[Rfam]
RNA: RT-5 RNA
RNA sequence: UAGCGCCUGUGGCGGGUCCGGCACGUAUCUUCUAAGGCUUCGCAGGCAGCCGGUAUGUGUACGAUCUUGUACAUCCAAUAAUUUUAUUGGAUUUAAUGAUUUCU
Numbered sequence: 001u002a003g004c005g006c007c008u009g010u011g012g013c014g015g016g017u018c019c020g021g022c023a024c025g026u027a028u029c030u031u032c033u034a035a036g037g038c039u040u041c042g043c044a045g046g047c048a049g050c051c052g053g054u055a056u057g058u059g060u061a062c063g064a065u066c067u068u069g070u071a072c073a074u075c076c077a078a079u080a081a082u083u084u085u086a087u088u089g090g091a092u093u094u095a096a097u098g099a100u101u102u103c104u
Base pairs, nucleotide, nucleotide: 005047006046007045008044009043010042011041014067015066017064018063021060022059023058024057025056026055027054028053036051037050038049039048075090076089077088078087079086080085